[Rfam]
RNA: TPP riboswitch aptamer (THI element)
RNA sequence: UCUCACAGACAGGGGAGCACGCGACCGGCGUGCUGAGAGUGCGGACCAGCCGCAGACCCUCGAACCUGCUCCGGUUAGCACCGGCGAAGGGAGUCGGAGUUGAGAUAUU
Numbered sequence: 001u002c003u004c005a006c007a008g009a010c011a012g013g014g015g016a017g018c019a020c021g022c023g024a025c026c027g028g029c030g031u032g033c034u035g036a037g038a039g040u041g042c043g044g045a046c047c048a049g050c051c052g053c054a055g056a057c058c059c060u061c062g063a064a065c066c067u068g069c070u071c072c073g074g075u076u077a078g079c080a081c082c083g084g085c086g087a088a089g090g091g092a093g094u095c096g097g098a099g100u101u102g103a104g105a106u107a108u109u
Stems, first nucleotide, its partner, number of pairs: 006097001008095003011060004017033005040054005065090003071084004